Rfam assigns this 265-nucleotide sequence from Gadus morhua to the family "RNase MRP". The source organism's lineage runs through Eukaryota, Deuterostomia, Chordata, Actinopterygii and Gadus. The family's consensus secondary structure is taken from published work. RNase MRP is an enzymatically active ribonucleoprotein with two distinct roles in eukaryotes.
RNA sequence: GGGCAUUCAGAAGGCUUGCAAUCUGGGCUACUCGCUGAGGACACCGUUCCUCCACCAUCGCCCAGGGGAAAGUCCCCGGACGCAGGGCAGAAAGUGCUCCAGUGUAAUCGCUCCCAUCGGCCUUGCGCUCCACCGUUGAUGGCUAAGAUGUGAAAUGCGAUAUACUGAGCUUGGUGGAUCGCAAGUCGAACUUGUCCAUGUGAUAGAAAUGCAAGUAGGCAACUACUGUACGCAUAAACAGAACGGGGCUCAUUCUCGGAAUGCU
Numbered sequence: 001g002g003g004c005a006u007u008c009a010g011a012a013g014g015c016u017u018g019c020a021a022u023c024u025g026g027g028c029u030a031c032u033c034g035c036u037g038a039g040g041a042c043a044c045c046g047u048u049c050c051u052c053c054a055c056c057a058u059c060g061c062c063c064a065g066g067g068g069a070a071a072g073u074c075c076c077c078g079g080a081c082g083c084a085g086g087g088c089a090g091a092a093a094g095u096g097c098u099c100c101a102g103u104g105u106a107a108u109c110g111c112u113c114c115c116a117u118c119g120g121c122c123u124u125g126c127g128c129u130c131c132a133c134c135g136u137u138g139a140u141g142g143c144u145a146a147g148a149u150g151u152g153a154a155a156u157g158c159g160a161u162a163u164a165c166u167g168a169g170c171u172u173g174g175u176g177g178a179u180c181g182c183a184a185g186u187c188g189a190a191c192u193u194g195u196c197c198a199u200g201u202g203a204u205a206g207a208a209a210u211g212c213a214a215g216u217a218g219g220c221a222a223c224u225a226c227u228g229u230a231c232g233c234a235u236a237a238a239c240a241g242a243a244c245g246g247g248g249c250u251c252a253u254u255c256u257c258g259g260a261a262u263g264c265u
Stems, first nucleotide, its partner, number of pairs: 002265007010257002014216006022066007037052005071250002074248004086098004102113001104111002117189003122185006129178004141171003150165003218235001219233002